Shown here is an 88-nucleotide RNA from a Dehalococcoidia bacterium, a member of the family "c-di-GMP-I riboswitch aptamer". Gene Ontology term of the family: cyclic-di-GMP binding. The base pairs follow the family's consensus structure, which is taken from published work.
[Rfam]
RNA sequence: AACGAAAAGAGGCAAGGCCGCGAGAAAUCGCCGCCACGCAAAGCCACGGGUCUACCGCCCACAGGGCCACGACCGCCGGGCCGCCGUA
Numbered sequence: 001a002a003c004g005a006a007a008a009g010a011g012g013c014a015a016g017g018c019c020g021c022g023a024g025a026a027a028u029c030g031c032c033g034c035c036a037c038g039c040a041a042a043g044c045c046a047c048g049g050g051u052c053u054a055c056c057g058c059c060c061a062c063a064g065g066g067c068c069a070c071g072a073c074c075g076c077c078g079g080g081c082c083g084c085c086g087u088a
Stems, first nucleotide, its partner, number of pairs: 012039002017034002020031003043081003047078003050073003057067004